[Rfam]
RNA sequence: CUGGCCAUCAAAAUGGCUGUGAAGACGUAUGUCGAAUCGUAUCACAGCCAUGUUUGAUGAGCUGGG
Numbered sequence: 001c002u003g004g005c006c007a008u009c010a011a012a013a014u015g016g017c018u019g020u021g022a023a024g025a026c027g028u029a030u031g032u033c034g035a036a037u038c039g040u041a042u043c044a045c046a047g048c049c050a051u052g053u054u055u056g057a058u059g060a061g062c063u064g065g066g
Stems, first nucleotide, its partner, number of pairs: 006059007014050009027040002
Record summary: mir-2 microRNA precursor family: a 66-nucleotide RNA from Amphibalanus amphitrite. NCBI's taxonomy places the organism under Eukaryota, Communostraca, Thoracica, Balanomorpha, Amphibalanus. The family has 56 seed sequences and 918 matches in Rfam 15.1. On this family, see Lee and Ambros, Science 2001: "An extensive class of small RNAs in Caenorhabditis elegans".